[Rfam]
RNA sequence: GGUUCAUUUUAAGGGGCUAGAGCAGAAGUAUUCACUUGACAGCCCCUGUCAGGCUCCUACAGAUCUGUGAAUUCAGCU
Numbered sequence: 001g002g003u004u005c006a007u008u009u010u011a012a013g014g015g016g017c018u019a020g021a022g023c024a025g026a027a028g029u030a031u032u033c034a035c036u037u038g039a040c041a042g043c044c045c046c047u048g049u050c051a052g053g054c055u056c057c058u059a060c061a062g063a064u065c066u067g068u069g070a071a072u073u074c075a076g077c078u
Stems, first nucleotide, its partner, number of pairs: 013046006021078003025074003028040002050067004055062001
RNA: Mammalian CPEB3 ribozyme
Organism: Microcaecilia unicolor